A member of the RNA family "Small nucleolar RNA SNORA12" from Rynchops niger, 141 nucleotides long. Rfam links the family to the GO terms RNA processing and nucleolus. The family has 23 seed sequences and 571 matches in Rfam 15.1. Rfam's curators write: U108 belongs to the H/ACA family of snoRNAs. The sequence is predicted to guide the pseudouridylation of the U372 residue in the 28S rRNA subunit. However it has not been reported as a pseudouridylation site.

[Rfam]
RNA sequence: UAUUGUGGUGGUUUCUGUAUUUGGCAGAUCUGUCACUAUAGCAGAGCGGCCUUAAACUACCACAGAGAUCAGAGCGGAGAAGGCUGUGCUGAGAACUUUCUCAAGCUUUUAGUUUUCAGCCUUUUUUCAGCUCCUACAGAA
Dot-bracket structure: ....(((((((...........(((.(.((((.........)))).).))).....)))))))............((((.......................(((................)))......)))).......
The family's RNA type in Rfam is H/ACA-box small nucleolar RNA.